SAM (S-adenosyl methionine) riboswitch aptamer: a 115-nucleotide sequence from Paramicrobacterium agarici. It scores 77 bits against the family's covariance model. Its family is annotated with regulation of gene expression and S-adenosylmethionine metabolic process in the Gene Ontology.

RNA sequence: GUUCACGAGAUGCAGCUGUCGGUACCUGGCCGGCUGCACGGCAACCCUGUCGAUCGACCGGGGUGCCCCAGGGGAAGAACCGGUGUUGUGCAACCGCACCACGCAAGUCGAUGGA
Numbered sequence: 001g002u003u004c005a006c007g008a009g010a011u012g013c014a015g016c017u018g019u020c021g022g023u024a025c026c027u028g029g030c031c032g033g034c035u036g037c038a039c040g041g042c043a044a045c046c047c048u049g050u051c052g053a054u055c056g057a058c059c060g061g062g063g064u065g066c067c068c069c070a071g072g073g074g075a076a077g078a079a080c081c082g083g084u085g086u087u088g089u090g091c092a093a094c095c096g097c098a099c100c101a102c103g104c105a106a107g108u109c110g111a112u113g114g115a
Base pairs, nucleotide, nucleotide: 001080002079003078004077009039011038012037013036014035015034016033021031022030040067041066042065045063046062047061049058050057083104084103085102086101088099089098090097091096
Overview
Its Rfam clan is "SAM clan". The family's consensus secondary structure is taken from published work.